Notes
Shown here is a 176-nucleotide sequence from Shewanella amazonensis, a member of the family "Lysine riboswitch aptamer". The base pairs follow the family's consensus structure, which is taken from published work. Riboswitches are metabolite binding domains within certain messenger RNAs that serve as precision sensors for their corresponding targets. NCBI's taxonomy places the organism under Bacteria, Pseudomonadota, Alteromonadales, Shewanellaceae, Shewanella amazonensis.
RNA sequence: AGGCACAGAAGAGGAGCGCCAACUAGGUAGCAGGCUUGAGGAGCAAUCACUCCAAAGACGACCUGUGAGGGAGAUUGGCGCCGAGGCAAAACCACGUGCUUGAGUGCGUUUUGUCGGUCGUUCAGGCUGAAUCCUGACGAUUGUCACCUGUUAUUUGGUGGAGAGCUUCUGGUGAC
Numbered sequence: 001a002g003g004c005a006c007a008g009a010a011g012a013g014g015a016g017c018g019c020c021a022a023c024u025a026g027g028u029a030g031c032a033g034g035c036u037u038g039a040g041g042a043g044c045a046a047u048c049a050c051u052c053c054a055a056a057g058a059c060g061a062c063c064u065g066u067g068a069g070g071g072a073g074a075u076u077g078g079c080g081c082c083g084a085g086g087c088a089a090a091a092c093c094a095c096g097u098g099c100u101u102g103a104g105u106g107c108g109u110u111u112u113g114u115c116g117g118u119c120g121u122u123c124a125g126g127c128u129g130a131a132u133c134c135u136g137a138c139g140a141u142u143g144u145c146a147c148c149u150g151u152u153a154u155u156u157g158g159u160g161g162a163g164a165g166c167u168u169c170u171g172g173u174g175a176c
Stems, first nucleotide, its partner, number of pairs: 006171006016081007024073001030066005036060001085115008116142005122137005144161005150155001
Dot-bracket structure: .....((((((....(((((((.(.....(((((.(.......................).)))))......).)))))))...((((((((...............))))))))(((((.(((((......)))))))))).(((((.(....).)))))....)))))).....